[Rfam]
RNA sequence: UUGUCGCCGUAGUUCUAAUAACAUAUAAGUAAUCAAAUAUGGUGAUUACGUUUCUACCAGAGAACCGAAUAAAUUCUCAGACUAUGGUAUAAAAACUCUUUUUU
Numbered sequence: 001u002u003g004u005c006g007c008c009g010u011a012g013u014u015c016u017a018a019u020a021a022c023a024u025a026u027a028a029g030u031a032a033u034c035a036a037a038u039a040u041g042g043u044g045a046u047u048a049c050g051u052u053u054c055u056a057c058c059a060g061a062g063a064a065c066c067g068a069a070u071a072a073a074u075u076c077u078c079a080g081a082c083u084a085u086g087g088u089a090u091a092a093a094a095a096c097u098c099u100u101u102u103u104u
Base pairs, nucleotide, nucleotide: 018090019089020088022086023085024084025083029049030048031047032046033045034044035043058080060078061077062076063075064074
About this RNA
A member of the RNA family "Purine riboswitch aptamer" from Clostridium sp. CAG:307, 104 nucleotides long. The match comes from Rfam's covariance-model search (66 bits).